A member of the RNA family "SAH (S-adenosyl-L-homocysteine) riboswitch aptamer" from Lampropedia hyalina, 144 nucleotides long. The family's consensus secondary structure is taken from published work. NCBI's taxonomy places the organism under Bacteria, Pseudomonadati, Betaproteobacteria, Lampropedia, Lampropedia hyalina.
RNA sequence: CUUCCCGAGGAGCGUUGCAACAUGGGCGCAGCAAUGGAUAUUGCGCGGCAUGUGAGGCUCGGGGUGGCUCAGGUCAGGUGUACAUGCCGGUUGUGCGGCAGGUGGCCCUGUCCAUGCGCACAUUGGCAACGACGCUCAUCCGCA
Numbered sequence: 001c002u003u004c005c006c007g008a009g010g011a012g013c014g015u016u017g018c019a020a021c022a023u024g025g026g027c028g029c030a031g032c033a034a035u036g037g038a039u040a041u042u043g044c045g046c047g048g049c050a051u052g053u054g055a056g057g058c059u060c061g062g063g064g065u066g067g068c069u070c071a072g073g074u075c076a077g078g079u080g081u082a083c084a085u086g087c088c089g090g091u092u093g094u095g096c097g098g099c100a101g102g103u104g105g106c107c108c109u110g111u112c113c114a115u116g117c118g119c120a121c122a123u124u125g126g127c128a129a130c131g132a133c134g135c136u137c138a139u140c141c142g143c144a
Stems, first nucleotide, its partner, number of pairs: 003064006021052004